[Rfam]
RNA sequence: GUGGUGUUUCACGCCACCGCAAAAGCUAAUUAAGAGAGGAAAGUCCGGACACCACGGGGUACGGGGCCAGAGAGAUCUGGAGCUAACGCUGCUCACGCAGCGAAACGCAUGAACAGUGCCACAGAAAAUAUACCACCUCAACUGAGGGGUGUGCAAACACCCCUCAGUUGAGGUAAGGGUGAAAAGGUGCGGUAAGAGCGCACCGCGCGGCCGAGAGGUUUGCGGCAGGGUAAACUCCCCCUGGUGCAAUUUCGAGCAGCUGCAGAUUUCUUCAGGGUUUCGGCCCGGCUGACCCCAGCCGAAAUCGUGCAGCGGGUAGAAAGCGAAGAGCUGCGGGGUAUAACCCGCAGACAAGACAAAUGGUUGCCAAAGGAUAUUUCGUUCUUACGAAAUCUCCGGGACAGAAUCCGGCUUAUGAAUGUCGUUAAU
Numbered sequence: 001g002u003g004g005u006g007u008u009u010c011a012c013g014c015c016a017c018c019g020c021a022a023a024a025g026c027u028a029a030u031u032a033a034g035a036g037a038g039g040a041a042a043g044u045c046c047g048g049a050c051a052c053c054a055c056g057g058g059g060u061a062c063g064g065g066g067c068c069a070g071a072g073a074g075a076u077c078u079g080g081a082g083c084u085a086a087c088g089c090u091g092c093u094c095a096c097g098c099a100g101c102g103a104a105a106c107g108c109a110u111g112a113a114c115a116g117u118g119c120c121a122c123a124g125a126a127a128a129u130a131u132a133c134c135a136c137c138u139c140a141a142c143u144g145a146g147g148g149g150u151g152u153g154c155a156a157a158c159a160c161c162c163c164u165c166a167g168u169u170g171a172g173g174u175a176a177g178g179g180u181g182a183a184a185a186g187g188u189g190c191g192g193u194a195a196g197a198g199c200g201c202a203c204c205g206c207g208c209g210g211c212c213g214a215g216a217g218g219u220u221u222g223c224g225g226c227a228g229g230g231u232a233a234a235c236u237c238c239c240c241c242u243g244g245u246g247c248a249a250u251u252u253c254g255a256g257c258a259g260c261u262g263c264a265g266a267u268u269u270c271u272u273c274a275g276g277g278u279u280u281c282g283g284c285c286c287g288g289c290u291g292a293c294c295c296c297a298g299c300c301g302a303a304a305u306c307g308u309g310c311a312g313c314g315g316g317u318a319g320a321a322a323g324c325g326a327a328g329a330g331c332u333g334c335g336g337g338g339u340a341u342a343a344c345c346c347g348c349a350g351a352c353a354a355g356a357c358a359a360a361u362g363g364u365u366g367c368c369a370a371a372g373g374a375u376a377u378u379u380c381g382u383u384c385u386u387a388c389g390a391a392a393u394c395u396c397c398g399g400g401a402c403a404g405a406a407u408c409c410g411g412c413u414u415a416u417g418a419a420u421g422u423c424g425u426u427a428a429u
Stems, first nucleotide, its partner, number of pairs: 001030001041414003045411005050246004057295004063241004067080005081110001082108002111237002116235002118231003133178002135174018186204006205226001206224005211218002250322004259313006286301005331350007

Record summary:
The record is a 429-nucleotide RNA from Turneriella parva, which matches "Bacterial RNase P class A" in Rfam. Rfam links the family to the GO terms dimeric ribonuclease P complex, tRNA processing and ribonuclease P activity. By type it is a ribozyme. NCBI's taxonomy places the organism under Bacteria, Pseudomonadati, Leptospiraceae, Turneriella, Turneriella parva.